[Rfam]
Rfam assigns this 99-nucleotide RNA from Aminobacterium colombiense to the family "Bacterial small signal recognition particle RNA". The base pairs follow the family's consensus structure, which is taken from published work. Lineage of the source: Bacteria > Synergistota > Aminobacteriaceae > Aminobacterium > Aminobacterium colombiense. It is annotated as a non-coding RNA gene. The match comes from Rfam's covariance-model search (74 bits). Rfam's curators write: The signal recognition particle (SRP) is a universally conserved ribonucleoprotein involved in the co-translational targeting of proteins to membranes.
RNA sequence: GAUUCAGCCCUGUGCGGCGAAACACCGUGAACCCUGUCAGGCCCGGGAGGGAGCAGCAGUAAGCGGAGCGUUUUGGGUGCCACAGGAAGCUGGAUCUCC
Number, nucleotide and partner (000 for none) at each position: 001g000002a000003u000004u093005c092006a091007g090008c089009c086010c085011u084012g083013u082014g081015c077016g000017g000018c075019g074020a073021a072022a071023c068024a000025c066026c065027g064028u063029g000030a000031a000032c000033c000034c059035u058036g057037u056038c000039a000040g000041g000042c051043c050044c049045g000046g000047g000048a000049g044050g043051g042052a000053g000054c000055a000056g037057c036058a035059g034060u000061a000062a000063g028064c027065g026066g025067a000068g023069c000070g000071u022072u021073u020074u019075g018076g000077g015078u000079g000080c000081c014082a013083c012084a011085g010086g009087a000088a000089g008090c007091u006092g005093g004094a000095u000096c000097u000098c000099c000